Small nucleolar RNA R38: a 76-nucleotide sequence. Rfam's curators write: snoR38 is a C/D box small nucleolar RNA conserved across yeast, human, Arabidopsis and rice. It is encoded in the intron of elongation factor-1 gamma in both pombe and cerevisiae. snoR38 guides the methylation of 2'-O-ribose sites in 28S rRNA. The sequence is in the family's curated seed alignment. For this family Rfam cites "Antisense snoRNAs: a family of nucleolar RNAs with long complementarities to rRNA" (Bachellerie et al., Trends Biochem Sci, 1995). Gene Ontology terms of the family: RNA processing and nucleolus. The family's RNA type in Rfam is C/D-box small nucleolar RNA.

Nucleotides: 076
Base pairs, nucleotide, nucleotide: 001076002075003074004073005072006071007070
Number, partner (000 for none) and nucleotide at each position: 001076u002075u003074g004073a005072g006071c007070u008000g009000a010000g011000g012000a013000u014000g015000a016000u017000u018000u019000a020000a021000g022000u023000u024000a025000u026000c027000c028000c029000u030000g031000u032000c033000u034000g035000a036000a037000a038000u039000g040000a041000c042000a043000c044000u045000u046000u047000u048000g049000u050000g051000a052000a053000g054000a055000g056000u057000c058000a059000u060000g061000g062000u063000u064000u065000a066000c067000u068000g069000a070007g071006g072005c073004u074003c075002g076001a